[Rfam]
RNA sequence: GGCCCAAAUAUGAAGUAAGAUUGGUAAGGUCAGCUGGUCCUACUAUUAUACUCUACUUCAAAAUUGGGCCC
Numbered sequence: 001g002g003c004c005c006a007a008a009u010a011u012g013a014a015g016u017a018a019g020a021u022u023g024g025u026a027a028g029g030u031c032a033g034c035u036g037g038u039c040c041u042a043c044u045a046u047u048a049u050a051c052u053c054u055a056c057u058u059c060a061a062a063a064u065u066g067g068g069c070c071c
Stems, first nucleotide, its partner, number of pairs: 001070007009062001011060007019052001022045005028039004